[Rfam]
RNA sequence: UGGCCUGAAAUGAUGUUCUGAGUUCAUGUCUCUUCUCUGAGAUGUGUUGUGGAGACAACCAGAUCCAUUUCUGAUCGGGCUU
Numbered sequence: 001u002g003g004c005c006u007g008a009a010a011u012g013a014u015g016u017u018c019u020g021a022g023u024u025c026a027u028g029u030c031u032c033u034u035c036u037c038u039g040a041g042a043u044g045u046g047u048u049g050u051g052g053a054g055a056c057a058a059c060c061a062g063a064u065c066c067a068u069u070u071c072u073g074a075u076c077g078g079g080c081u082u
Base pairs, nucleotide, nucleotide: 002081003080004079005078

This 82-nucleotide RNA from Mystacornis crossleyi belongs to the Rfam family "Small nucleolar RNA SNORD111".
The family's RNA type in Rfam is C/D-box small nucleolar RNA.
NCBI's taxonomy places the organism under Eukaryota, Coelurosauria, Aves, Neognathae, Mystacornis.
Its family is annotated with nucleolus and RNA processing in the Gene Ontology.